[Rfam]
Shown here is a 148-nucleotide sequence from Luteitalea sp., a member of the family "Group II catalytic intron D1-D4-4". The source organism's lineage runs through Bacteria, Acidobacteriota, Vicinamibacteria, Vicinamibacteraceae and Luteitalea. A search with the family's covariance model found it, with a score of 62 bits. Rfam links the family to the GO term Group II intron splicing. The literature on the family includes a 2001 paper in Trends Genet by Bonen and Vogel, "The ins and outs of group II introns".
RNA sequence: UUGCCGGUGCAAGUCCGGUCGCGGGAACUGGCUGUAUGCCCGCGUAGUAAUACUCGACGCCUCACGGAGGUGACUCGGCGAGGCGAAAGCUCGAACGUAAACGUCCUGGCCGGUGCAGGGCUAGCAAUCCCAUCGGGCCGUAGCGAAU
Numbered sequence: 001u002u003g004c005c006g007g008u009g010c011a012a013g014u015c016c017g018g019u020c021g022c023g024g025g026a027a028c029u030g031g032c033u034g035u036a037u038g039c040c041c042g043c044g045u046a047g048u049a050a051u052a053c054u055c056g057a058c059g060c061c062u063c064a065c066g067g068a069g070g071u072g073a074c075u076c077g078g079c080g081a082g083g084c085g086a087a088a089g090c091u092c093g094a095a096c097g098u099a100a101a102c103g104u105c106c107u108g109g110c111c112g113g114u115g116c117a118g119g120g121c122u123a124g125c126a127a128u129c130c131c132a133u134c135g136g137g138c139c140g141u142a143g144c145g146a147a148u
Stems, first nucleotide, its partner, number of pairs: 020044005054094003058085006067076001069074001103121006124141002